Shown here is a 48-nucleotide sequence from Roseburia sp. 1XD42-69, a member of the family "DUF3800-XI RNA". A search with the family's covariance model found it, with a score of 51 bits. Lineage of the source: Bacteria > Bacillati > Clostridia > Lachnospirales > Roseburia. Actinobacteria, Firmicutes, Proteobacteria, Spirochaetes (1 example). The base pairs follow the family's consensus structure, which is taken from published work.
[Rfam]
RNA sequence: UGGACUGGCCGAAAGGCCCUGGUUCACGGAACAGCGGGGAAAUUCCCC
Numbered sequence: 001u002g003g004a005c006u007g008g009c010c011g012a013a014a015g016g017c018c019c020u021g022g023u024u025c026a027c028g029g030a031a032c033a034g035c036g037g038g039g040a041a042a043u044u045c046c047c048c
Stems, first nucleotide, its partner, number of pairs: 001026006007018004